[Rfam]
RNA sequence: CCAACGGCUCUUUUAAGAGCCACCUACACACCUCGGGAAAAGAGCU
Numbered sequence: 001c002c003a004a005c006g007g008c009u010c011u012u013u014u015a016a017g018a019g020c021c022a023c024c025u026a027c028a029c030a031c032c033u034c035g036g037g038a039a040a041a042g043a044g045c046u
Base pairs, nucleotide, nucleotide: 006021007020008019009018010017011016

This 46-nucleotide RNA sequence from Mandrillus leucophaeus belongs to the Rfam family "Histone 3' UTR stem-loop". Taxonomically the source falls in Mandrillus (Eukaryota, Chordata, Tetrapoda, Cercopithecidae). By type it is a cis-regulatory element. Rfam describes the family as follows. The mRNAs of metazoan histone genes lack a poly-A tail. 3' end processing occurs at a site between a highly conserved stem-loop (modelled by this family) and a purine rich region around 20 nts downstream (the histone downstream element, or HDE). The stem-loop is bound by a 31 kDa stem-loop binding protein (SLBP - also termed the histone hairpin binding protein, or HBP). Together with U7 snRNA binding of the HDE, SLBP binding nucleate s the formation of the processing complex. The histone 3' UTR stem-loop is also involved in nucleocytoplasmic transport of the mRNA, and in stability regulation and translation efficiency in the cytoplasm. Rfam 15.1 lists 44,596 matches to the family in 976 species.